[Rfam]
About this RNA
Shown here is a 118-nucleotide RNA from Clostridium sp. USBA 49, a member of the family "SAM riboswitch aptamer (S box leader)". Rfam links the family to the GO term regulation of gene expression.

RNA sequence: UUCUUAUCUAGAGAAGCGGAGGGACUGGCCCUAUGAAGCUCGACAACCGGCAUUAUACUUAUAAUGCAUCGGUGUCAAUUCCUGCAGAAUAAAUUAUAUUUAUUCUGAAAGAUAGGAA
Number, nucleotide and partner (000 for none) at each position: 001u118002u117003c116004u115005u114006a113007u112008c111009u000010a000011g000012a000013g041014a000015a040016g039017c038018g000019g000020a000021g031022g030023g029024a000025c084026u000027g082028g081029c023030c022031c021032u000033a000034u000035g000036a000037a000038g017039c016040u015041c013042g076043a075044c074045a073046a000047c072048c071049g000050g067051c066052a065053u064054u063055a000056u000057a000058c000059u000060u000061a000062u000063a054064a053065u052066g051067c050068a000069u000070c000071g048072g047073u045074g044075u043076c042077a000078a000079u000080u110081c028082c027083u000084g025085c107086a106087g105088a104089a103090u102091a101092a100093a099094u000095u000096a000097u000098a000099u093100u092101u091102a090103u089104u088105c087106u086107g085108a000109a000110a080111g008112a007113u006114a005115g004116g003117a002118a001
Lineage of the source: Bacteria > Bacillota > Clostridia > Clostridiaceae > Clostridium.